[Rfam]
RNA sequence: UUUGUUCACUCUCCCCCAACGGCUUCGAGCUCGCCAUUUCUGACAUUGCUAGAAGCCUUUGAGGGAGAGUGAGCAA
Numbered sequence: 001u002u003u004g005u006u007c008a009c010u011c012u013c014c015c016c017c018a019a020c021g022g023c024u025u026c027g028a029g030c031u032c033g034c035c036a037u038u039u040c041u042g043a044c045a046u047u048g049c050u051a052g053a054a055g056c057c058u059u060u061g062a063g064g065g066a067g068a069g070u071g072a073g074c075a076a
Stems, first nucleotide, its partner, number of pairs: 006072010017061003021057006